RNA sequence: UCUGCGAAAUGGCAAAUGACGCGAAAGCGACAGACGCAAAGCUAUAGGGGCUACUCGGUUACACCGUAUGCUUGCCAGCUACCGAA
Numbered sequence: 001u002c003u004g005c006g007a008a009a010u011g012g013c014a015a016a017u018g019a020c021g022c023g024a025a026a027g028c029g030a031c032a033g034a035c036g037c038a039a040a041g042c043u044a045u046a047g048g049g050g051c052u053a054c055u056c057g058g059u060u061a062c063a064c065c066g067u068a069u070g071c072u073u074g075c076c077a078g079c080u081a082c083c084g085a086a
Base pairs, nucleotide, nucleotide: 012037013036017032018031020029021028022027040080041079042078043077047076048075049072050071051070056066057065058064059063